[Rfam]
RNA: chrB-b RNA
RNA sequence: UGGGGAAAUGCAGACUCCCCAUUAGGCGGCCACACCGUCCAAGCUCUGC
Numbered sequence: 001u002g003g004g005g006a007a008a009u010g011c012a013g014a015c016u017c018c019c020c021a022u023u024a025g026g027c028g029g030c031c032a033c034a035c036c037g038u039c040c041a042a043g044c045u046c047u048g049c
Base pairs, nucleotide, nucleotide: 001021002020003019004018005017006016010049011048012047013046014045025039026038027037028036029035
Dot-bracket structure: ((((((...[[[[[.))))))...(((((.....))))).....]]]]]